RNA: Yersinia sRNA 209
Organism: Serratia ficaria
RNA sequence: AUCAGACGGCAGCGACGAAUCGCCGAAAGAUAGCAAAAAAAUCAGU
Numbered sequence: 001a002u003c004a005g006a007c008g009g010c011a012g013c014g015a016c017g018a019a020u021c022g023c024c025g026a027a028a029g030a031u032a033g034c035a036a037a038a039a040a041a042u043c044a045g046u
Stems, first nucleotide, its partner, number of pairs: 001031003007025004